Fluoride riboswitch aptamer (crcB RNA motif): a 74-nucleotide RNA from Vagococcus carniphilus.
The base pairs follow the family's consensus structure, which is taken from published work.
RNA sequence: AAUGAAUACGGGAAUGAUGUUCUCCCUUAACGUGAUGUUAAAACCGCUAAACAGCUAAUGACUUCUACAGACCU
Number, nucleotide and partner (000 for none) at each position: 001a000002a000003u000004g000005a000006a000007u000008a000009c000010g026011g025012g024013a023014a000015u000016g065017a064018u000019g062020u061021u060022c000023u013024c012025c011026c010027u000028u000029a000030a000031c000032g000033u000034g000035a000036u000037g000038u000039u000040a000041a000042a000043a000044c000045c000046g055047c054048u053049a000050a000051a000052c000053a048054g047055c046056u000057a000058a000059u000060g021061a020062c019063u000064u017065c016066u000067a000068c000069a000070g000071a000072c000073c000074u000
Notes:
A search with the family's covariance model found it, with a score of 46 bits. The source organism's lineage runs through Bacteria, Bacillati, Bacillota, Enterococcaceae and Vagococcus.